[Rfam]
RNA sequence: UAAAAAAUAGGCUCGCGGGAUAUUCCGCGAGCCCGAUGUAUCUUCCACAACAUCGGUGUCAGAUACUUAAUGGGAGAGGAGAAACCGGAGGAAGAGCUUAUGGGGAAACGUAAGUCUUCUCCGCGG
Numbered sequence: 001u002a003a004a005a006a007a008u009a010g011g012c013u014c015g016c017g018g019g020a021u022a023u024u025c026c027g028c029g030a031g032c033c034c035g036a037u038g039u040a041u042c043u044u045c046c047a048c049a050a051c052a053u054c055g056g057u058g059u060c061a062g063a064u065a066c067u068u069a070a071u072g073g074g075a076g077a078g079g080a081g082a083a084a085c086c087g088g089a090g091g092a093a094g095a096g097c098u099u100a101u102g103g104g105g106a107a108a109c110g111u112a113a114g115u116c117u118u119c120u121c122c123g124c125g126g
Stems, first nucleotide, its partner, number of pairs: 011032009033074002036071002086123004091119004096115005
RNA: ylbH leader
Organism: Laceyella tengchongensis